The family of this 105-nucleotide RNA from Triticum aestivum is "Small nucleolar RNA snoR97". NCBI's taxonomy places the organism under Eukaryota, Streptophytina, Embryophyta, Triticinae, Triticum. The literature on the family includes a 2002 paper in Curr Biol by Marker et al., "Experimental RNomics: identification of 140 candidates for small non-messenger RNAs in the plant Arabidopsis thaliana". It scores 79 bits against the family's covariance model.
RNA sequence: UACCUCUGAUUUGUGGUAGAGGCUGAAAAACUUGCAGACCGUGUGUUGUCAUCAGCUUUGUCUCUUGUUCCUACGAGAUGGGAGUUAAAUAACGACACGAGAUUC
Numbered sequence: 001u002a003c004c005u006c007u008g009a010u011u012u013g014u015g016g017u018a019g020a021g022g023c024u025g026a027a028a029a030a031c032u033u034g035c036a037g038a039c040c041g042u043g044u045g046u047u048g049u050c051a052u053c054a055g056c057u058u059u060g061u062c063u064c065u066u067g068u069u070c071c072u073a074c075g076a077g078a079u080g081g082g083a084g085u086u087a088a089a090u091a092a093c094g095a096c097a098c099g100a101g102a103u104u105c
Base pairs, nucleotide, nucleotide: 042099043098044097045096046095047094048093054086055085056084057083058082059081061078062077063076064075
Dot-bracket structure: .........................................(((((((.....((((((.((((..........))))..))))))......)))))))......